The record is a 74-nucleotide RNA from Bicyclus anynana, which matches "mir-2763 microRNA precursor family" in Rfam. The family's consensus secondary structure was predicted with RNAalifold. Rfam links the family to the GO terms miRNA-mediated post-transcriptional gene silencing and RISC complex.

RNA sequence: CACAAUCUCCAAAAUAGUGUGCAUAAUUUAUCGUGAGAGUUUGAUAUUAUGCACAUUACUUUGGAUAUUUUGUG
Numbered sequence: 001c002a003c004a005a006u007c008u009c010c011a012a013a014a015u016a017g018u019g020u021g022c023a024u025a026a027u028u029u030a031u032c033g034u035g036a037g038a039g040u041u042u043g044a045u046a047u048u049a050u051g052c053a054c055a056u057u058a059c060u061u062u063g064g065a066u067a068u069u070u071u072g073u074g
Base pairs, nucleotide, nucleotide: 001072002071004069006067008065009064010063011062012061013060015058016057017056018055019054020053022051023050024049025048026047029046030045031044032043036040